Description
Rfam assigns this 89-nucleotide RNA sequence from Coffea canephora to the family "Small nucleolar RNA snoR8a". A search with the family's covariance model found it, with a score of 68 bits.
RNA sequence: AUGUUGGCAGUGAUUAGAAUGCAUAAUUCCUCGUUCUGAAUGCCAGAGGCAUGAGAGACUCAAUCUUACACCCAUAGAAUCUGAGCCAC
Numbered sequence: 001a002u003g004u005u006g007g008c009a010g011u012g013a014u015u016a017g018a019a020u021g022c023a024u025a026a027u028u029c030c031u032c033g034u035u036c037u038g039a040a041u042g043c044c045a046g047a048g049g050c051a052u053g054a055g056a057g058a059c060u061c062a063a064u065c066u067u068a069c070a071c072c073c074a075u076a077g078a079a080u081c082u083g084a085g086c087c088a089c
Base pairs, nucleotide, nucleotide: 003089004088006087007086